[Rfam]
Source information: A member of the RNA family "Purine riboswitch aptamer" from Shouchella clausii, 102 nucleotides long. The base pairs follow the family's consensus structure, which is taken from published work. The source organism's lineage runs through Bacteria, Bacillota, Bacillaceae, Shouchella and Shouchella clausii. About the family: Riboswitches are metabolite binding domains within certain messenger RNAs that serve as precision sensors for their corresponding targets. Allosteric rearrangement of mRNA structure is mediated by ligand binding, and this results in modulation of gene expression.
Nucleotides: 102
Stems, first nucleotide, its partner, number of pairs: 021085005030048006058078007
Number, partner (000 for none) and nucleotide at each position: 001000a002000a003000u004000g005000u006000c007000c008000a009000a010000u011000a012000g013000g014000a015000a016000a017000a018000u019000a020000c021085c022084c023083g024082u025081a026000u027000a028000a029000u030048u031047g032046c033045a034044g035043g036000a037000a038000u039000a040000a041000g042000g043035c044034c045033u046032g047031c048030a049000c050000g051000u052000u053000u054000c055000u056000a057000c058078c059077g060076a061075g062074c063073c064072a065000c066000c067000g068000u069000a070000a071000a072064u073063g074062g075061c076060u077059u078058g079000a080000c081025u082024a083023c084022g085021g086000c087000a088000u089000g090000a091000u092000a093000a094000a095000u096000g097000g098000a099000g100000c101000g102000c